[Rfam]
U1 spliceosomal RNA: a 161-nucleotide sequence from Ipomoea nil. Its family is annotated with pre-mRNA 5'-splice site binding, mRNA 5'-splice site recognition and U1 snRNP in the Gene Ontology. By type it is a spliceosomal small nuclear RNA.

RNA sequence: AUACUUACCUGGACGAGGUCAAUGGCUGAUCAAGAAGAGUCAUGGCCUAGACUAGUGACUUUCAUUGCACUAUCGGAGGGUUGCUAGUCUAAGGUCUCCUUGAAUAGGAGAGCCUACGUCAUAAUUUGUGGAAGAGGGGGUUUGCGUUCGCGCAGCCCCUA
Number, nucleotide and partner (000 for none) at each position: 001a000002u000003a000004c000005u000006u000007a000008c000009c000010u000011g000012g120013a119014c118015g117016a048017g047018g046019u045020c044021a043022a000023u042024g041025g040026c039027u038028g000029a000030u000031c000032a000033a000034g000035a000036a000037g000038a027039g026040u025041c024042a023043u021044g020045g019046c018047c017048u016049a090050g089051a088052c000053u087054a000055g084056u083057g082058a000059c080060u079061u078062u076063c075064a000065u000066u000067g000068c000069a000070c000071u000072a000073u000074c000075g063076g062077a000078g061079g060080g059081u000082u057083g056084c055085u000086a000087g053088u051089c050090u049091a000092a115093g114094g113095u111096c110097u109098c000099c107100u106101u000102g000103a000104a000105u000106a100107g099108g000109a097110g096111a095112g000113c094114c093115u092116a000117c015118g014119u013120c012121a000122u000123a000124a000125u000126u000127u000128g000129u000130g000131g000132a000133a000134g000135a000136g160137g159138g158139g157140g156141u000142u000143u154144g153145c152146g151147u000148u000149c000150g000151c146152g145153c144154a143155g000156c140157c139158c138159c137160u136161a000